[Rfam]
RNA sequence: CCGCGAGGACGGCCUCCCCCAAUCGGGUUGCAUAUCGGGACGACCCGA
Numbered sequence: 001c002c003g004c005g006a007g008g009a010c011g012g013c014c015u016c017c018c019c020c021a022a023u024c025g026g027g028u029u030g031c032a033u034a035u036c037g038g039g040a041c042g043a044c045c046c047g048a
Stems, first nucleotide, its partner, number of pairs: 003018001005016004035048005
Dot-bracket structure: ..(.((((....)))).)................(((((....)))))
Rfam assigns this 48-nucleotide sequence from Amaricoccus macauensis to the family "Guanidine-II riboswitch aptamer (mini-ykkC)". Pairs were carried over by alignment from the consensus structure, which is taken from published work. The match comes from Rfam's covariance-model search (32 bits). The literature on the family includes a 2007 paper in Nucleic Acids Res by Weinberg et al., "Identification of 22 candidate structured RNAs in bacteria using the CMfinder comparative genomics pipeline". The source organism's lineage runs through Bacteria, Pseudomonadati, Rhodobacterales, Paracoccaceae and Amaricoccus. About the family: Simpler in structure and has fewer highly conserved nucleotide positions than the ykkC-yxkD leader.